Shown here is a 104-nucleotide RNA from Acer yangbiense, a member of the family "Small nucleolar RNA Z107/R87". For this family Rfam cites "Identification of 66 box C/D snoRNAs in Arabidopsis thaliana: extensive gene duplications generated multiple isoforms predicting new ribosomal RNA 2'-O-methylation sites" (Barneche et al., J Mol Biol, 2001). Rfam links the family to the GO terms RNA processing and nucleolus. Rfam 15.1 lists 783 matches to the family in 221 species.
[Rfam]
RNA sequence: GAUCGCAGUGAUGACUCAGUAAAUUCAAGCUCAACAGACCGGAAUGCAGUGCUUCUCUUUUUAGAGAGCUUUGCGUGUCGACAACCCCGCUGAACUGAGCGAUC
Numbered sequence: 001g002a003u004c005g006c007a008g009u010g011a012u013g014a015c016u017c018a019g020u021a022a023a024u025u026c027a028a029g030c031u032c033a034a035c036a037g038a039c040c041g042g043a044a045u046g047c048a049g050u051g052c053u054u055c056u057c058u059u060u061u062u063a064g065a066g067a068g069c070u071u072u073g074c075g076u077g078u079c080g081a082c083a084a085c086c087c088c089g090c091u092g093a094a095c096u097g098a099g100c101g102a103u104c
Base pairs, nucleotide, nucleotide: 001104002103003102004101005100006099